Acido-Lenti-1 RNA: a 45-nucleotide RNA sequence from Candidatus Magnetoglobus multicellularis.
RNA sequence: CCCAGGGCUUCGCCCUGGGCUAUAUUAAUUCGCGCUUUCAGCGCU
Numbered sequence: 001c002c003c004a005g006g007g008c009u010u011c012g013c014c015c016u017g018g019g020c021u022a023u024a025u026u027a028a029u030u031c032g033c034g035c036u037u038u039c040a041g042c043g044c045u
Base pairs, nucleotide, nucleotide: 001019002018003017004016005015006014007013008012032044033043034042035041036040

The base pairs follow the family's consensus structure, which is taken from published work. It is annotated as a small RNA. The organism belongs to Candidatus Magnetoglobus multicellularis, within Bacteria.